RNA sequence: AGACAUCCGUUCCUCUGACAAAGCUUUUCAUGCUAUGUUAGAUUUAAGGAAGUCUUAGAAUAAAAAUGAACUGCUUCACCCAGAAUUGUUUUCUUAUUUACACUGUUUGGCUUUUGCGGGUUCAUACAUUC
Dot-bracket structure: ((((.(((.....(((((.(.((.........)).).))))).....))).))))............(((((.......((((((.(((..........))).).)))))........)))))........
Numbered sequence: 001a002g003a004c005a006u007c008c009g010u011u012c013c014u015c016u017g018a019c020a021a022a023g024c025u026u027u028u029c030a031u032g033c034u035a036u037g038u039u040a041g042a043u044u045u046a047a048g049g050a051a052g053u054c055u056u057a058g059a060a061u062a063a064a065a066a067u068g069a070a071c072u073g074c075u076u077c078a079c080c081c082a083g084a085a086u087u088g089u090u091u092u093c094u095u096a097u098u099u100a101c102a103c104u105g106u107u108u109g110g111c112u113u114u115u116g117c118g119g120g121u122u123c124a125u126a127c128a129u130u131c
Stems, first nucleotide, its partner, number of pairs: 001055004006050003014042005020036001022034002068123005080110005085104001087102003
Rfam assigns this 131-nucleotide RNA sequence from Harpegnathos saltator to the family "Small nucleolar RNA SNORA79". The family's consensus secondary structure was predicted with RNAalifold. A reference for the family is Schattner et al. (2006), "A computational screen for mammalian pseudouridylation guide H/ACA RNAs", RNA. By type it is an H/ACA-box small nucleolar RNA. NCBI's taxonomy places the organism under Eukaryota, Opisthokonta, Dicondylia, Endopterygota, Harpegnathos. The match comes from Rfam's covariance-model search (64 bits).